[Rfam]
RNA: Bacterial RNase P class A
Organism: Daejeonella rubra
RNA sequence: AUUGCAAGCCGUUCUAUCGCCGUGAUGCAAAUCAAGGAGGAAAGUCCGGGCAACACAGAGCAUUCUGCUUCCUAACAGGAAGGCGCCAUAAAUUGGUGACGGAAAGUGCCACAGAAAAUAUACUUCCCGCUCAGGUGGGUAAAGGUGAAAACGUGAGGUAAGAGCUCACGGCAUCACAUGGUGACAUGAGGUGCGGUAAACCCCAGGAGUUGAAAGACCAAAUAGGUUCCGGAAGCGAAGCUGCUCGUUUCCUUAUGCCGCAAAUGCGGCAUUUUCCGGAAUGGGUAGGUCGUUAGAUCACGCGAGUAAUUACGUGGCUAGAUAAAUGAUAGAAUUCCCGAGUUUUCGGGAAACAGAACCCGGCUUACAGGCUUGCUUUUUAU
Numbered sequence: 001a002u003u004g005c006a007a008g009c010c011g012u013u014c015u016a017u018c019g020c021c022g023u024g025a026u027g028c029a030a031a032u033c034a035a036g037g038a039g040g041a042a043a044g045u046c047c048g049g050g051c052a053a054c055a056c057a058g059a060g061c062a063u064u065c066u067g068c069u070u071c072c073u074a075a076c077a078g079g080a081a082g083g084c085g086c087c088a089u090a091a092a093u094u095g096g097u098g099a100c101g102g103a104a105a106g107u108g109c110c111a112c113a114g115a116a117a118a119u120a121u122a123c124u125u126c127c128c129g130c131u132c133a134g135g136u137g138g139g140u141a142a143a144g145g146u147g148a149a150a151a152c153g154u155g156a157g158g159u160a161a162g163a164g165c166u167c168a169c170g171g172c173a174u175c176a177c178a179u180g181g182u183g184a185c186a187u188g189a190g191g192u193g194c195g196g197u198a199a200a201c202c203c204c205a206g207g208a209g210u211u212g213a214a215a216g217a218c219c220a221a222a223u224a225g226g227u228u229c230c231g232g233a234a235g236c237g238a239a240g241c242u243g244c245u246c247g248u249u250u251c252c253u254u255a256u257g258c259c260g261c262a263a264a265u266g267c268g269g270c271a272u273u274u275u276c277c278g279g280a281a282u283g284g285g286u287a288g289g290u291c292g293u294u295a296g297a298u299c300a301c302g303c304g305a306g307u308a309a310u311u312a313c314g315u316g317g318c319u320a321g322a323u324a325a326a327u328g329a330u331a332g333a334a335u336u337c338c339c340g341a342g343u344u345u346u347c348g349g350g351a352a353a354c355a356g357a358a359c360c361c362g363g364c365u366u367a368c369a370g371g372c373u374u375g376c377u378u379u380u381u382a383u
Stems, first nucleotide, its partner, number of pairs: 001379001004376007011368001012334007020037002023034004042366003046363005051212004058270001063208005068082005083100001084098004101203002106201002108197003123144002126139005152170006173192003177188004216291004226282006262274004298317005304311002
Dot-bracket structure: (..(((((((((((((((.((.((((....)))).))....[[[.[[[[[((((...[....((((((((((.....)))))(((((.......)))).)((...(((((............((.(((((....)))))...)).......((((((.......))))))..(((.((((....)))).)))..)))..)))))))))))))...((((......((((((..............................((((....]))))..)))))).....))))......(((((.((....)).)))))..........)))))))........................]]]]]]]].).)))))))..)....